The record is a 57-nucleotide RNA from a Dermatophilaceae bacterium, which matches "msiK RNA" in Rfam. Pairs were carried over by alignment from the consensus structure, which is taken from published work. A search with the family's covariance model found it, with a score of 58 bits. The organism belongs to Dermatophilaceae, within Bacteria. By type it is a cis-regulatory element.
[Rfam]
RNA sequence: AGGCAAAACCUUUACAACGGAUCGUCCGGCACGUUCCUGCCGGUGAAGGAAGGCAAU
Numbered sequence: 001a002g003g004c005a006a007a008a009c010c011u012u013u014a015c016a017a018c019g020g021a022u023c024g025u026c027c028g029g030c031a032c033g034u035u036c037c038u039g040c041c042g043g044u045g046a047a048g049g050a051a052g053g054c055a056a057u
Stems, first nucleotide, its partner, number of pairs: 009049006026043006